[Rfam]
RNA sequence: CUGUGCGUAGCUUUGCCUGCUUUUGACACCAUCAAAAACAGAAAUAAUCUAUAAUAUGCCAUAUUGCAAAAGCAGUUUUUAGGGAUGUCAGUCUUAUAGUAGAGGCUGUGGGGCAGUUUAUGUGUCUAAACAA
Numbered sequence: 001c002u003g004u005g006c007g008u009a010g011c012u013u014u015g016c017c018u019g020c021u022u023u024u025g026a027c028a029c030c031a032u033c034a035a036a037a038a039c040a041g042a043a044a045u046a047a048u049c050u051a052u053a054a055u056a057u058g059c060c061a062u063a064u065u066g067c068a069a070a071a072g073c074a075g076u077u078u079u080u081a082g083g084g085a086u087g088u089c090a091g092u093c094u095u096a097u098a099g100u101a102g103a104g105g106c107u108g109u110g111g112g113g114c115a116g117u118u119u120a121u122g123u124g125u126c127u128a129a130a131c132a133a
Base pairs, nucleotide, nucleotide: 003059004058005057007055008054017041018040019039021037022036023035072126074125084114088110089108090107091106092105093104094103095102
Rfam assigns this 133-nucleotide RNA sequence from Cavia porcellus to the family "Small nucleolar RNA U109". Pairs were carried over by alignment from the consensus structure, which was predicted with WAR. A reference for the family is Richard et al. (2003), "A common sequence motif determines the Cajal body-specific localization of box H/ACA scaRNAs", EMBO J. The organism belongs to Cavia, within Eukaryota. A search with the family's covariance model found it, with a score of 52 bits.